[Rfam]
Nucleotides: 033
Base pairs, nucleotide, nucleotide: 001033002032003031004030005029006028008027009022010021011020012019
Number, partner (000 for none) and nucleotide at each position: 001033c002032a003031c004030u005029a006028u007000c008027g009022a010021a011020g012019g013000a014000a015000u016000u017000a018000g019012c020011c021010u022009u023000a024000a025000u026000u027008c028006a029005u030004g031003g032002u033001g